[Rfam]
RNA sequence: UCAUCCGCGAGGAUGGAUCUGAAGGAAGGAGGAGGCAAAACCGCGAGUCGAUGAACAAGAACCACAUGGUAGGCGUCAGGACAUGGACGAGUCCCCGACUAUGAUUAAGUCCCAGACUGCACGGAUUGUCCUGGUGUAAAUGUGGCGGCUGCAUGCGGUGAAAGAUUUCGUU
Dot-bracket structure: ((((((....))))))...........((.((...(...(((((((((((...........((((((.....(((.(((((((.((((..(((.........)))...))))..............))))))).)))..)))))))))))...))))))....)...)).))
Numbered sequence: 001u002c003a004u005c006c007g008c009g010a011g012g013a014u015g016g017a018u019c020u021g022a023a024g025g026a027a028g029g030a031g032g033a034g035g036c037a038a039a040a041c042c043g044c045g046a047g048u049c050g051a052u053g054a055a056c057a058a059g060a061a062c063c064a065c066a067u068g069g070u071a072g073g074c075g076u077c078a079g080g081a082c083a084u085g086g087a088c089g090a091g092u093c094c095c096c097g098a099c100u101a102u103g104a105u106u107a108a109g110u111c112c113c114a115g116a117c118u119g120c121a122c123g124g125a126u127u128g129u130c131c132u133g134g135u136g137u138a139a140a141u142g143u144g145g146c147g148g149c150u151g152c153a154u155g156c157g158g159u160g161a162a163a164g165a166u167u168u169c170g171u172u
Stems, first nucleotide, its partner, number of pairs: 001016006028172002031169002036164001040159006046150005062145006073137003077133007085112004091105003